[Rfam]
RNA sequence: UUCCUCCCAGGCUGUGGUUGCGGGUGCGCGCGGACUAUCGGUUCGUCGCGCUCCUCAGUCCAAGACAGACGCGGUCGAAGGGAUCCACGUAAGCCGUCGCGUGCGCGCGAGGGCGAUCAUGGCGCGUCCUAGAAGUAAGUCGCACCGCCCGUCGCUACUUUUUUGAGGCAAUACGUGCCUCGCGGGCGAGCGGGUUAGUCGUGAUACCGCCGCGGCGGUACGAGCAAACGCCCCGGUGCGCAAGUGUGGGGUCAAAAACCAGGUCAGCUGGGGGGA
Numbered sequence: 001u002u003c004c005u006c007c008c009a010g011g012c013u014g015u016g017g018u019u020g021c022g023g024g025u026g027c028g029c030g031c032g033g034a035c036u037a038u039c040g041g042u043u044c045g046u047c048g049c050g051c052u053c054c055u056c057a058g059u060c061c062a063a064g065a066c067a068g069a070c071g072c073g074g075u076c077g078a079a080g081g082g083a084u085c086c087a088c089g090u091a092a093g094c095c096g097u098c099g100c101g102u103g104c105g106c107g108c109g110a111g112g113g114c115g116a117u118c119a120u121g122g123c124g125c126g127u128c129c130u131a132g133a134a135g136u137a138a139g140u141c142g143c144a145c146c147g148c149c150c151g152u153c154g155c156u157a158c159u160u161u162u163u164u165g166a167g168g169c170a171a172u173a174c175g176u177g178c179c180u181c182g183c184g185g186g187c188g189a190g191c192g193g194g195u196u197a198g199u200c201g202u203g204a205u206a207c208c209g210c211c212g213c214g215g216c217g218g219u220a221c222g223a224g225c226a227a228a229c230g231c232c233c234c235g236g237u238g239c240g241c242a243a244g245u246g247u248g249g250g251g252u253c254a255a256a257a258a259c260c261a262g263g264u265c266a267g268c269u270g271g272g273g274g275g276a
Stems, first nucleotide, its partner, number of pairs: 001276007012267003015261005062247001064245001065075001068128006084122002089117001094112002097109001120254001141240005146188007192233004201225002208217003

A member of the RNA family "raiA RNA" from Collinsella intestinalis, 276 nucleotides long. The organism belongs to Collinsella intestinalis, within Bacteria.